[Rfam]
Nucleotides: 091
Stems, first nucleotide, its partner, number of pairs: 002051007021038002024036004
Number, partner (000 for none) and nucleotide at each position: 001000u002051u003050a004049a005048c006047c007046g008045a009000g010000g011000a012000a013000c014000g015000c016000u017000g018000c019000g020000a021038g022037g023000c024036g025035c026034a027033c028000a029000u030000c031000a032000g033027g034026u035025g036024c037022c038021c039000c040000c041000a042000g043000g044000c045008u046007c047006g048005g049004u050003u051002g052000u053000c054000a055000a056000a057000g058000c059000a060000g061000u062000c063000c064000a065000c066000c067000g068000c069000u070000u071000u072000g073000c074000g075000a076000a077000c078000g079000g080000c081000g082000u083000u084000c085000a086000c087000u088000u089000a090000u091000u